[Rfam]
RNA: Small nucleolar RNA SNORD97
RNA sequence: GCACCCUGUGAUUAUAAAAAGACGCGUUAUUCUGAGGGAUCCCACUGGAUGGCAGUUUUCUUUCUUUGUCUGUUUGUUUGUUUCUAUUCUUUUUUCCUCCUCCUCAAUGCUCUUCUGCUAUCCCUCACUCUUUAACUGUCCGCCAGUCCACUGAUUGUGAUUAUGAGAUAUGAGGGUGU
Numbered sequence: 001g002c003a004c005c006c007u008g009u010g011a012u013u014a015u016a017a018a019a020a021g022a023c024g025c026g027u028u029a030u031u032c033u034g035a036g037g038g039a040u041c042c043c044a045c046u047g048g049a050u051g052g053c054a055g056u057u058u059u060c061u062u063u064c065u066u067u068g069u070c071u072g073u074u075u076g077u078u079u080g081u082u083u084c085u086a087u088u089c090u091u092u093u094u095u096c097c098u099c100c101u102c103c104u105c106a107a108u109g110c111u112c113u114u115c116u117g118c119u120a121u122c123c124c125u126c127a128c129u130c131u132u133u134a135a136c137u138g139u140c141c142g143c144c145a146g147u148c149c150a151c152u153g154a155u156u157g158u159g160a161u162u163a164u165g166a167g168a169u170a171u172g173a174g175g176g177u178g179u
Stems, first nucleotide, its partner, number of pairs: 001179006035092005